[Rfam]
RNA: bantam microRNA precursor family
RNA sequence: CGAAGCUGGUUUUCACUUUGAUCUGUCAGAUUUAUCAUUGUUCAUUCUGAGAUCAUUGUGAAAGCUAAUUU
Number, nucleotide and partner (000 for none) at each position: 001c000002g000003a071004a070005g069006c000007u067008g066009g065010u064011u063012u062013u061014c060015a059016c058017u000018u000019u055020g054021a053022u052023c051024u050025g000026u000027c000028a000029g000030a000031u000032u000033u000034a000035u000036c000037a000038u000039u000040g000041u000042u000043c000044a000045u000046u000047c000048u000049g000050a024051g023052a022053u021054c020055a019056u000057u000058g016059u015060g014061a013062a012063a011064g010065c009066u008067a007068a000069u005070u004071u003